[Rfam]
RNA sequence: UCGCCGCCGUCAGGAGAGAGUUUCCCCGUGAAACCGCCGAAGGCGCAGGCCCCAGCCGAACGCUCAGGCACCCAGGACUGACAAGCGCUU
Numbered sequence: 001u002c003g004c005c006g007c008c009g010u011c012a013g014g015a016g017a018g019a020g021u022u023u024c025c026c027c028g029u030g031a032a033a034c035c036g037c038c039g040a041a042g043g044c045g046c047a048g049g050c051c052c053c054a055g056c057c058g059a060a061c062g063c064u065c066a067g068g069c070a071c072c073c074a075g076g077a078c079u080g081a082c083a084a085g086c087g088c089u090u
Stems, first nucleotide, its partner, number of pairs: 009082005020034004036069003039065002043063003049056002